[Rfam]
This 97-nucleotide RNA sequence from Raphanus sativus belongs to the Rfam family "mir-172 microRNA precursor family". Rfam 15.1 lists 2,076 matches to the family in 219 species. A reference for the family is Mette et al. (2002), "Short RNAs can identify new candidate transposable element families in Arabidopsis", Plant Physiol. The match comes from Rfam's covariance-model search (72 bits). Rfam describes the family as follows. mir-172 has been experimentally verified in Arabidopsis thaliana. This family is thought to target mRNAs coding for APETALA2-like transcription factors. The mature sequence is excised from the 3' arm of the hairpin. Rfam links the family to the GO terms miRNA-mediated post-transcriptional gene silencing and RISC complex. Taxonomically the source falls in Raphanus (Eukaryota, Tracheophyta, Magnoliopsida, Gunneridae).
RNA sequence: GUAGUUGCAGAUGCUGCAUCAUUAAGAUUCACGAGAGAUGUGGUUUCCUUUGAUUAUCGCCUCUUGGGAAUCUUGAUGAUGCUGCAUCAGCAAAUAC
Numbered sequence: 001g002u003a004g005u006u007g008c009a010g011a012u013g014c015u016g017c018a019u020c021a022u023u024a025a026g027a028u029u030c031a032c033g034a035g036a037g038a039u040g041u042g043g044u045u046u047c048c049u050u051u052g053a054u055u056a057u058c059g060c061c062u063c064u065u066g067g068g069a070a071u072c073u074u075g076a077u078g079a080u081g082c083u084g085c086a087u088c089a090g091c092a093a094a095u096a097c
Base pairs, nucleotide, nucleotide: 010088011087012086013085014084016082017081018080019079020078021077022076023075024074025073026072027071028070029069030068032066033065034064035063036062037061